Notes
This 97-nucleotide sequence from Facklamia languida belongs to the Rfam family "THF (Tetrahydrofolate) riboswitch aptamer". It scores 67 bits against the family's covariance model.
RNA sequence: GUCAGAGUAAAAGUAAGGCGUAAAGUGUUAUGGGAUGGAAUGUUGCCCAUAAACGAAAACACAUUUUUGAGUUGCGGUCUUACUUUGCAUUCGCUAC
Number, nucleotide and partner (000 for none) at each position: 001g097002u096003c000004a095005g094006a000007g000008u000009a000010a086011a085012a084013g083014u082015a081016a080017g079018g078019c076020g075021u074022a000023a000024a000025g054026u053027g000028u052029u051030a050031u049032g048033g047034g046035a000036u000037g000038g092039a091040a090041u089042g088043u000044u000045g000046c034047c033048c032049a031050u030051a029052a028053a026054c025055g000056a000057a000058a073059a072060c071061a000062c000063a000064u000065u000066u000067u000068u000069g000070a000071g060072u059073u058074g021075c020076g019077g000078u018079c017080u016081u015082a014083c013084u012085u011086u010087g000088c042089a041090u040091u039092c038093g000094c005095u004096a002097c001